[Rfam]
RNA: ODC internal ribosome entry site (IRES)
RNA sequence: GUUUCCACUGCUGCACAGAGGGCACACGCAUCUUCAGGGGGACUUGAAAUUCCUGGAGAGUUGCCUUUGUGACAAGUUGACAUAAUCCCUUUAAAUUCCACCUCUAAGUUUUCCAUAUUUGUUUAUACCUUGAGAGUCCCUUGGACUGCAAGUAGAUC
Numbered sequence: 001g002u003u004u005c006c007a008c009u010g011c012u013g014c015a016c017a018g019a020g021g022g023c024a025c026a027c028g029c030a031u032c033u034u035c036a037g038g039g040g041g042a043c044u045u046g047a048a049a050u051u052c053c054u055g056g057a058g059a060g061u062u063g064c065c066u067u068u069g070u071g072a073c074a075a076g077u078u079g080a081c082a083u084a085a086u087c088c089c090u091u092u093a094a095a096u097u098c099c100a101c102c103u104c105u106a107a108g109u110u111u112u113c114c115a116u117a118u119u120u121g122u123u124u125a126u127a128c129c130u131u132g133a134g135a136g137u138c139c140c141u142u143g144g145a146c147u148g149c150a151a152g153u154a155g156a157u158c
Stems, first nucleotide, its partner, number of pairs: 010077003016071001018068007026061002039054004085157003089152003096145003